[Rfam]
RNA sequence: AAAAAAGCAGGGAUCUAUUACCUUAUUUGUGAAUGGGUCUCUCGUAAACUUCAGGAAUAUUAUAAUUGCGUUGUUAUUGGGUGAACCACUUGACCACUCAUGAUGGAAUGGUUCAGUAAACGAUGAUACAUAC
Numbered sequence: 001a002a003a004a005a006a007g008c009a010g011g012g013a014u015c016u017a018u019u020a021c022c023u024u025a026u027u028u029g030u031g032a033a034u035g036g037g038u039c040u041c042u043c044g045u046a047a048a049c050u051u052c053a054g055g056a057a058u059a060u061u062a063u064a065a066u067u068g069c070g071u072u073g074u075u076a077u078u079g080g081g082u083g084a085a086c087c088a089c090u091u092g093a094c095c096a097c098u099c100a101u102g103a104u105g106g107a108a109u110g111g112u113u114c115a116g117u118a119a120a121c122g123a124u125g126a127u128a129c130a131u132a133c
Base pairs, nucleotide, nucleotide: 005051006050007049011040012039014037015036016035017034018033019032069125070124071123072122073121074120075119082115083114084113085112086111087110088109

A member of the RNA family "Small nucleolar RNA snoR74" from Capsicum baccatum, 133 nucleotides long. A reference for the family is Marker et al. (2002), "Experimental RNomics: identification of 140 candidates for small non-messenger RNAs in the plant Arabidopsis thaliana", Curr Biol. The family has 9 seed sequences and 1,404 matches in Rfam 15.1. The match comes from Rfam's covariance-model search (97 bits). Lineage of the source: Eukaryota > Euphyllophyta > Gunneridae > Solanales > Capsicum.